Rfam assigns this 50-nucleotide RNA sequence from Adenia mannii to the family "Plastid-ccsA-ndhD-2 3UTR RNA". Rfam's curators write: Plastid ccsA-ndhD-2 is a non-coding RNA (ncRNA) recognised in plastids. It was found in the three prime untranslated region (3UTR) of ccsA and ndhD genes, its 3UTR location suggests a role in transcript maturation. The family's RNA type in Rfam is cis-regulatory element.
[Rfam]
RNA sequence: UUUGAAUCAACUUUUUGAAUCAAGUAAUAUAGUGAUUCAAAAGGUUCUCA
Dot-bracket structure: ........((((((((((((((..........))))))))))))))....